[Rfam]
RNA sequence: UGACGGGGGCCCGCACAAGCGGUGGAGCAUGUGGUUUAAUUCGAAGCAACGCGCAGAACCUUACCAGCCCUUGACAUUUGGCGCUACACAGAGAGAUUUGUGGUUCCCUUCGGGGACGCCAGGACAGGUGCUGCAUGGCUGUCGUCAGCUCGUGUCGUGAGAUGUUGGGUUAAGUCCCGCAACGAGCGCAACCCUCGCCCUUAGUUGCCAUCAUUCAGUUGGGCACUCUAGGGGGACUGCCGGUGAUAAGCCGGAGGAAGGUGGGGAUGACGUCAAGUCCUCAUGGCCCUUACGGGCUGGGCUACACACGUGCUACAAUGGCGGUGACAGUGGGCAGCGACCUCGCGAGGGGGAGCUAAUCUCCAAAAGCCGUCUCAGUUCGGAUUGUUCUCUGCAACUCGAGAGCAUGAAGUUGGAAUCGCUAGUAAUCGCGUAACAGCAUGACGCGGUGAAUACGUUCCCGGGCCUUGUACACACCGCCCGUCACACCAUGGGAGUUGGGUUUACCCGAAGGCAGUGCGCUAACCGCAAGGGGGCAGCUGACCACGGUAGGCUCAGCGACUGGGGUGAAGUCGUAACAAGG
Numbered sequence: 001u002g003a004c005g006g007g008g009g010c011c012c013g014c015a016c017a018a019g020c021g022g023u024g025g026a027g028c029a030u031g032u033g034g035u036u037u038a039a040u041u042c043g044a045a046g047c048a049a050c051g052c053g054c055a056g057a058a059c060c061u062u063a064c065c066a067g068c069c070c071u072u073g074a075c076a077u078u079u080g081g082c083g084c085u086a087c088a089c090a091g092a093g094a095g096a097u098u099u100g101u102g103g104u105u106c107c108c109u110u111c112g113g114g115g116a117c118g119c120c121a122g123g124a125c126a127g128g129u130g131c132u133g134c135a136u137g138g139c140u141g142u143c144g145u146c147a148g149c150u151c152g153u154g155u156c157g158u159g160a161g162a163u164g165u166u167g168g169g170u171u172a173a174g175u176c177c178c179g180c181a182a183c184g185a186g187c188g189c190a191a192c193c194c195u196c197g198c199c200c201u202u203a204g205u206u207g208c209c210a211u212c213a214u215u216c217a218g219u220u221g222g223g224c225a226c227u228c229u230a231g232g233g234g235g236a237c238u239g240c241c242g243g244u245g246a247u248a249a250g251c252c253g254g255a256g257g258a259a260g261g262u263g264g265g266g267a268u269g270a271c272g273u274c275a276a277g278u279c280c281u282c283a284u285g286g287c288c289c290u291u292a293c294g295g296g297c298u299g300g301g302c303u304a305c306a307c308a309c310g311u312g313c314u315a316c317a318a319u320g321g322c323g324g325u326g327a328c329a330g331u332g333g334g335c336a337g338c339g340a341c342c343u344c345g346c347g348a349g350g351g352g353g354a355g356c357u358a359a360u361c362u363c364c365a366a367a368a369g370c371c372g373u374c375u376c377a378g379u380u381c382g383g384a385u386u387g388u389u390c391u392c393u394g395c396a397a398c399u400c401g402a403g404a405g406c407a408u409g410a411a412g413u414u415g416g417a418a419u420c421g422c423u424a425g426u427a428a429u430c431g432c433g434u435a436a437c438a439g440c441a442u443g444a445c446g447c448g449g450u451g452a453a454u455a456c457g458u459u460c461c462c463g464g465g466c467c468u469u470g471u472a473c474a475c476a477c478c479g480c481c482c483g484u485c486a487c488a489c490c491a492u493g494g495g496a497g498u499u500g501g502g503u504u505u506a507c508c509c510g511a512a513g514g515c516a517g518u519g520c521g522c523u524a525a526c527c528g529c530a531a532g533g534g535g536g537c538a539g540c541u542g543a544c545c546a547c548g549g550u551a552g553g554c555u556c557a558g559c560g561a562c563u564g565g566g567g568u569g570a571a572g573u574c575g576u577a578a579c580a581a582g583g
Stems, first nucleotide, its partner, number of pairs: 001474002003471003007468007015458002019422005024316001026314008034305002040055001042053002064300007077124002079121005087102006105116004127289002130287004136283002138278003141274001143272002148187006154163003166179004193266004198234007208223002212221002237257002240254005320374006332363003337356002342351003381412001386407007428450007477582001479579001482575002487569004492564003497559012513544001515542004521537003526533002
RNA: Bacterial small subunit ribosomal RNA, nucleotides 863 to 1445
Organism: Pseudovibrio exalbescens